[Rfam]
Source information
Rfam assigns this 86-nucleotide sequence from Calderihabitans maritimus to the family "Group II catalytic intron D1-D4-1". A search with the family's covariance model found it, with a score of 74 bits. From the family's description: Group II introns are found in rRNA, tRNA and mRNA of organelles in fungi, plants and protists, and also in mRNA in bacteria.
RNA sequence: CAACCCGUGUCGAGAGGCACGGCUGAACCGGCAGGAGUCAGCAGAGGGCAUAGUACCCUGGGGGUUGUGAACUCCAGGGGAAGGCC
Numbered sequence: 001c002a003a004c005c006c007g008u009g010u011c012g013a014g015a016g017g018c019a020c021g022g023c024u025g026a027a028c029c030g031g032c033a034g035g036a037g038u039c040a041g042c043a044g045a046g047g048g049c050a051u052a053g054u055a056c057c058c059u060g061g062g063g064g065u066u067g068u069g070a071a072c073u074c075c076a077g078g079g080g081a082a083g084g085c086c
Stems, first nucleotide, its partner, number of pairs: 001025002005022007038045002047086003056079008